The family of this 82-nucleotide sequence from Tistrella mobilis is "Proteobacterial sRNA sX8". It scores 68 bits against the family's covariance model. A reference for the family is Schmidtke et al. (2011), "Genome-wide transcriptome analysis of the plant pathogen Xanthomonas identifies sRNAs with putative virulence functions", Nucleic Acids Res. The family's RNA type in Rfam is small RNA.
RNA sequence: CUUCGCUGAUCACCACAGUGGAGAAAGUGAUUGGGAAACAGAGACUUAGCGCUCUAGUGCAUGACUCAGAUCCGGCGCCAUC
Numbered sequence: 001c002u003u004c005g006c007u008g009a010u011c012a013c014c015a016c017a018g019u020g021g022a023g024a025a026a027g028u029g030a031u032u033g034g035g036a037a038a039c040a041g042a043g044a045c046u047u048a049g050c051g052c053u054c055u056a057g058u059g060c061a062u063g064a065c066u067c068a069g070a071u072c073c074g075g076c077g078c079c080a081u082c
Stems, first nucleotide, its partner, number of pairs: 001023008029078001032075001034073003043065001045063001050059003